[Rfam]
RNA sequence: GGCCUGAUGCCACGUCUCCGGUAGCUACGAGCAUUGACCGGAGAUGCUAUGAUUAGGCCGAUACAAAGUUGUUUCAACGUUUCGCAUAUUGAUAGGAACCUGGGGAUUGCUUUCCAUCAGUCCACAGAGCCGUUUUCUGUGAUUACAGAU
Numbered sequence: 001g002g003c004c005u006g007a008u009g010c011c012a013c014g015u016c017u018c019c020g021g022u023a024g025c026u027a028c029g030a031g032c033a034u035u036g037a038c039c040g041g042a043g044a045u046g047c048u049a050u051g052a053u054u055a056g057g058c059c060g061a062u063a064c065a066a067a068g069u070u071g072u073u074u075c076a077a078c079g080u081u082u083c084g085c086a087u088a089u090u091g092a093u094a095g096g097a098a099c100c101u102g103g104g105g106a107u108u109g110c111u112u113u114c115c116a117u118c119a120g121u122c123c124a125c126a127g128a129g130c131c132g133u134u135u136u137c138u139g140u141g142a143u144u145a146c147a148g149a150u
Base pairs, nucleotide, nucleotide: 002058003057004056005055006054007053008052009050013046014045015044016043017042018041020039021038022037024032025031026030082142083141084140085139086138095131096130100127101126102125104123105122106121107120108119

Overview: The record is a 150-nucleotide RNA sequence from Eragrostis curvula, which matches "Small nucleolar RNA snoR2/U65" in Rfam. By type it is an H/ACA-box small nucleolar RNA. The base pairs follow the family's consensus structure, which was predicted with WAR. A reference for the family is Shaw et al. (1998), "Localization and processing from a polycistronic precursor of novel snoRNAs in maize", J Cell Sci. Its family is annotated with RNA processing and nucleolus in the Gene Ontology.